[Rfam]
RNA sequence: CCCUCCAAGCCUCUCAACGAUGCUCAAACGGGAGGGG
Numbered sequence: 001c002c003c004u005c006c007a008a009g010c011c012u013c014u015c016a017a018c019g020a021u022g023c024u025c026a027a028a029c030g031g032g033a034g035g036g037g
Stems, first nucleotide, its partner, number of pairs: 001036006008024003
The family of this 37-nucleotide sequence from Omegavirus thibault is "abiF RNA". Taxonomically the source falls in Omegavirus thibault (Viruses, Duplodnaviria, Heunggongvirae, Omegavirus). It is annotated as a small RNA. Rfam 15.1 lists 282 matches to the family in 274 species. Rfam's curators write: Actinobacteria, Bacteroidetes, Clostridia, Proteobacteria, one Clostridia phage.